This 144-nucleotide sequence from Sporosarcina luteola belongs to the Rfam family "Ribosomal protein L10 leader".
A search with the family's covariance model found it, with a score of 74 bits.
The source organism's lineage runs through Bacteria, Bacilli, Caryophanales, Caryophanaceae and Sporosarcina.
By type it is a cis-regulatory leader.
Rfam links the family to the GO term regulation of gene expression.
RNA sequence: UGAACUAAAUCAUUUGUACCGUAGACAGCAGGGGCGCUUCGCUUAAUUAUCCUGCCGAGGACAAGACGCUCUUUACUUAAAGAUGACGACUUUUCUGCCCUCGUAGUCUACAUUGUGGACUGCGGGGGCUUUUCAUAUCGGUAU
Dot-bracket structure: ...........................(((((((((...))).......)))))).........................................(((((((((((((((...)))))))))))))))...............
Numbered sequence: 001u002g003a004a005c006u007a008a009a010u011c012a013u014u015u016g017u018a019c020c021g022u023a024g025a026c027a028g029c030a031g032g033g034g035c036g037c038u039u040c041g042c043u044u045a046a047u048u049a050u051c052c053u054g055c056c057g058a059g060g061a062c063a064a065g066a067c068g069c070u071c072u073u074u075a076c077u078u079a080a081a082g083a084u085g086a087c088g089a090c091u092u093u094u095c096u097g098c099c100c101u102c103g104u105a106g107u108c109u110a111c112a113u114u115g116u117g118g119a120c121u122g123c124g125g126g127g128g129c130u131u132u133u134c135a136u137a138u139c140g141g142u143a144u
Stems, first nucleotide, its partner, number of pairs: 028055006034042003097129015